[Rfam]
RNA sequence: UGGACUAAUGAUGAGAAAUUAUCGGGGUCAGAGAUUAUGAAUAGACUAUUUUUGUAAAUUUGUGGUCCAA
Numbered sequence: 001u002g003g004a005c006u007a008a009u010g011a012u013g014a015g016a017a018a019u020u021a022u023c024g025g026g027g028u029c030a031g032a033g034a035u036u037a038u039g040a041a042u043a044g045a046c047u048a049u050u051u052u053u054g055u056a057a058a059u060u061u062g063u064g065g066u067c068c069a070a
Stems, first nucleotide, its partner, number of pairs: 002068005
A member of the RNA family "Small nucleolar RNA SNORD113/SNORD114 family" from Nannospalax galili, 70 nucleotides long. Rfam classes the family as a C/D-box small nucleolar RNA. On this family, see Cavaille et al., Hum Mol Genet 2002: "Identification of tandemly-repeated C/D snoRNA genes at the imprinted human 14q32 domain reminiscent of those at the Prader-Willi/Angelman syndrome region". From the family's description: The imprinted human domain at 14q32 contains two clusters of tandemly repeated small nucleolar RNAs named 14q(I) and 14q(II) snoRNAs. It scores 37 bits against the family's covariance model. Lineage of the source: Eukaryota > Deuterostomia > Tetrapoda > Eutheria > Nannospalax.